[Rfam]
RNA sequence: CCUGUUGUUCAGCCAACAGUAGCCUAGGGAUAGUGCAUCACUGGUAACGGUGUUGUGCGAAGCUUCCUGACAAUGUAGCCCCCUGAAAGGGUGAGAUCGGCCCGUGAGGGCUAUCUCAGAACCUGCAAGCAACAUGCGGGUGAGGCG
Numbered sequence: 001c002c003u004g005u006u007g008u009u010c011a012g013c014c015a016a017c018a019g020u021a022g023c024c025u026a027g028g029g030a031u032a033g034u035g036c037a038u039c040a041c042u043g044g045u046a047a048c049g050g051u052g053u054u055g056u057g058c059g060a061a062g063c064u065u066c067c068u069g070a071c072a073a074u075g076u077a078g079c080c081c082c083c084u085g086a087a088a089g090g091g092u093g094a095g096a097u098c099g100g101c102c103c104g105u106g107a108g109g110g111c112u113a114u115c116u117c118a119g120a121a122c123c124u125g126c127a128a129g130c131a132a133c134a135u136g137c138g139g140g141u142g143a144g145g146c147g
Base pairs, nucleotide, nucleotide: 002019003018004017005016006015007014027068028067029066030065033058034057035056036055037054039052040051041050042049043048082091083090084089092118093117094116095115102109103108122140123139124138125137126136127135
Rfam assigns this 147-nucleotide sequence from Marinobacter sp. B9-2 to the family "Group II catalytic intron D1-D4-7". The source organism's lineage runs through Bacteria, Pseudomonadati, Gammaproteobacteria, Pseudomonadales and Marinobacter. From the family's description: Group II introns are found in rRNA, tRNA and mRNA of organelles in fungi, plants and protists, and also in mRNA in bacteria. Gene Ontology term of the family: Group II intron splicing. For this family Rfam cites "The ins and outs of group II introns" (Bonen and Vogel, Trends Genet, 2001). A search with the family's covariance model found it, with a score of 122 bits. Pairs were carried over by alignment from the consensus structure.